GA-cis RNA: an 88-nucleotide RNA sequence. By type it is a small RNA. The family's consensus secondary structure is taken from published work.
RNA sequence: UGAGGGAGGUGCGCUUAUGUCGAAGACAUAAUUCUACAUCGCACCGACCGACUGGCCGCCGAGCGAAGGCGAGGGGGCAUUACAUGUU
Numbered sequence: 001u002g003a004g005g006g007a008g009g010u011g012c013g014c015u016u017a018u019g020u021c022g023a024a025g026a027c028a029u030a031a032u033u034c035u036a037c038a039u040c041g042c043a044c045c046g047a048c049c050g051a052c053u054g055g056c057c058g059c060c061g062a063g064c065g066a067a068g069g070c071g072a073g074g075g076g077g078c079a080u081u082a083c084a085u086g087u088u
Base pairs, nucleotide, nucleotide: 008045009044010043011042012041013040015031016030017029018028019027020026055078056077057076059074060073063070064069